[Rfam]
RNA sequence: UCUUCCUGCCGUGUGACUGGCGUUUCCUCCCUAAACUCGGGCCGCACCUUGGUGCGGCCUUUUUUUUGUACCGC
Numbered sequence: 001u002c003u004u005c006c007u008g009c010c011g012u013g014u015g016a017c018u019g020g021c022g023u024u025u026c027c028u029c030c031c032u033a034a035a036c037u038c039g040g041g042c043c044g045c046a047c048c049u050u051g052g053u054g055c056g057g058c059c060u061u062u063u064u065u066u067u068g069u070a071c072c073g074c
Stems, first nucleotide, its partner, number of pairs: 008021003040059008

The record is a 74-nucleotide RNA from Teichococcus wenyumeiae, which matches "Makes More Granules Regulator RNA (mmgR)" in Rfam. SuhB later renamed mmgR (makes more granules regulator) was a putative non-coding RNA found multiple times in the Agrobacterium tumefaciens genome and related alpha-proteobacteria. Its family is annotated with response to nitrogen compound, DNA-templated transcription, termination and protein binding in the Gene Ontology. The organism belongs to Roseomonas, within Bacteria. The match comes from Rfam's covariance-model search (51 bits).